[Rfam]
Nucleotides: 077
Base pairs, nucleotide, nucleotide: 001068002067003066004065
Number, partner (000 for none) and nucleotide at each position: 001068g002067a003066g004065g005000u006000g007000u008000g009000a010000g011000g012000a013000a014000a015000a016000c017000a018000u019000c020000u021000g022000a023000a024000c025000a026000g027000u028000c029000u030000g031000a032000c033000u034000u035000u036000c037000c038000u039000u040000g041000a042000a043000g044000a045000c046000u047000g048000a049000u050000a051000a052000g053000a054000u055000c056000c057000a058000a059000c060000u061000c062000u063000g064000a065004c066003c067002u068001c069000a070000u071000u072000u073000g074000c075000u076000c077000u